RNA sequence: AAGGGUUUCUUGCCAACUUUGAUUGUUCAAGAGUUAGCCGCUCCUAAGGGAAAGCUGAAAAGCAUUUAAAUAGGGAUUUGGUGUGGCAAGCAAUUGUUGUGUCUUUUCCCGGUCCCAAAAGGGAAACAGGUUAAUAUUCCUGUGCCUAGGUUAAUGUUAUAUAUGGAAGAUGGUAACAUAAUUUGGAAUGAACUUCUUAACGCAGGUUUUACGAUCGAAAUGCGUUAUCUUUGCAUUUUAACUUAUAGCUAACCUUGGAAUCAAUUUAAUUGGAGAAAAGGUUUGCUGAAUUGCAAUUCAUGAGGUUUUUAAGUGGCGGAAUAAUUUAUUAUUCCACAUUUAAAAAAUUAGUGUUUUGUAGUAAAAGUAAUUCAAUAUUAUGGAUUAUUCGAUAUGUAAGAACUGCCCGUGAAAAGGGAAGGGAACAGCUAUAUGUAGUGGGCAUGUUGUGAUGUUUUCAUGAGAGUUAUAUAUAAAGAAUAAAGUUAUUUGUUAAGCGAUAACUUUAUUCUUUAUAUAUAAUUUCUCUUGAAAGUGUCACAAUAAUGUUACAUUAUGAUAGCAUAGAUAACGAUGCCAUUUAGAGCGUACCCACAA
Numbered sequence: 001a002a003g004g005g006u007u008u009c010u011u012g013c014c015a016a017c018u019u020u021g022a023u024u025g026u027u028c029a030a031g032a033g034u035u036a037g038c039c040g041c042u043c044c045u046a047a048g049g050g051a052a053a054g055c056u057g058a059a060a061a062g063c064a065u066u067u068a069a070a071u072a073g074g075g076a077u078u079u080g081g082u083g084u085g086g087c088a089a090g091c092a093a094u095u096g097u098u099g100u101g102u103c104u105u106u107u108c109c110c111g112g113u114c115c116c117a118a119a120a121g122g123g124a125a126a127c128a129g130g131u132u133a134a135u136a137u138u139c140c141u142g143u144g145c146c147u148a149g150g151u152u153a154a155u156g157u158u159a160u161a162u163a164u165g166g167a168a169g170a171u172g173g174u175a176a177c178a179u180a181a182u183u184u185g186g187a188a189u190g191a192a193c194u195u196c197u198u199a200a201c202g203c204a205g206g207u208u209u210u211a212c213g214a215u216c217g218a219a220a221u222g223c224g225u226u227a228u229c230u231u232u233g234c235a236u237u238u239u240a241a242c243u244u245a246u247a248g249c250u251a252a253c254c255u256u257g258g259a260a261u262c263a264a265u266u267u268a269a270u271u272g273g274a275g276a277a278a279a280g281g282u283u284u285g286c287u288g289a290a291u292u293g294c295a296a297u298u299c300a301u302g303a304g305g306u307u308u309u310u311a312a313g314u315g316g317c318g319g320a321a322u323a324a325u326u327u328a329u330u331a332u333u334c335c336a337c338a339u340u341u342a343a344a345a346a347a348u349u350a351g352u353g354u355u356u357u358g359u360a361g362u363a364a365a366a367g368u369a370a371u372u373c374a375a376u377a378u379u380a381u382g383g384a385u386u387a388u389u390c391g392a393u394a395u396g397u398a399a400g401a402a403c404u405g406c407c408c409g410u411g412a413a414a415a416g417g418g419a420a421g422g423g424a425a426c427a428g429c430u431a432u433a434u435g436u437a438g439u440g441g442g443c444a445u446g447u448u449g450u451g452a453u454g455u456u457u458u459c460a461u462g463a464g465a466g467u468u469a470u471a472u473a474u475a476a477a478g479a480a481u482a483a484a485g486u487u488a489u490u491u492g493u494u495a496a497g498c499g500a501u502a503a504c505u506u507u508a509u510u511c512u513u514u515a516u517a518u519a520u521a522a523u524u525u526c527u528c529u530u531g532a533a534a535g536u537g538u539c540a541c542a543a544u545a546a547u548g549u550u551a552c553a554u555u556a557u558g559a560u561a562g563c564a565u566a567g568a569u570a571a572c573g574a575u576g577c578c579a580u581u582u583a584g585a586g587c588g589u590a591c592c593c594a595c596a597a
Base pairs, nucleotide, nucleotide: 003592004591008032009031010030011029012028017025039588040587041586043122044121048116049115050066051065054063055062056061073109074108075107126143127142128141129140130139146584147583148582149581154580155579156578158576160573193421194420195419196418197417198416202406203405204404205403207401208400209399210398211397212396215392216391217390218238219237220236221235222234223233252282253281254280255279256278261273262272263271264270295386296385297384298383299382300381301380302379303378
Dot-bracket structure: ..((...(((((....(.......)..)))))......(((.((...((((..(((....))).))......(((...............................))).....))....))...(((((........)))))..((((....(((.(.(................................((((((...((((.((((((..(((((((((.........)))))).............(((((....((((.....))))....)))))............(((((((((..........................................................................)))))))))...)))...)))))).)))).........)))))).......................................................................................................................................................)..).))))))).)))..)).....